[Rfam]
Rfam assigns this 88-nucleotide RNA sequence from Microctonus hyperodae to the family "mir-276 microRNA precursor family".
The organism belongs to Microctonus, within Eukaryota.

RNA sequence: AAGGUAGAGCUCCAGUAGCGAGGUAUAGGGUUCCUACGUAGUUUUUGACAUAGUAGGAACUUUAUACCGUGCUCUUGGACUUGCCAAA
Number, nucleotide and partner (000 for none) at each position: 001a000002a000003g000004g000005u000006a000007g000008a000009g000010c000011u000012c078013c077014a076015g000016u000017a073018g072019c071020g070021a000022g068023g067024u066025a065026u064027a000028g062029g061030g060031u059032u058033c057034c056035u055036a054037c053038g000039u000040a000041g000042u000043u000044u000045u000046u000047g000048a000049c000050a000051u000052a000053g037054u036055a035056g034057g033058a032059a031060c030061u029062u028063u000064a026065u025066a024067c023068c022069g000070u020071g019072c018073u017074c000075u000076u014077g013078g012079a000080c000081u000082u000083g000084c000085c000086a000087a000088a000
Pairs were carried over by alignment from the consensus structure, which was predicted with RNAalifold.
A search with the family's covariance model found it, with a score of 76 bits.
The family has 42 seed sequences and 200 matches in Rfam 15.1.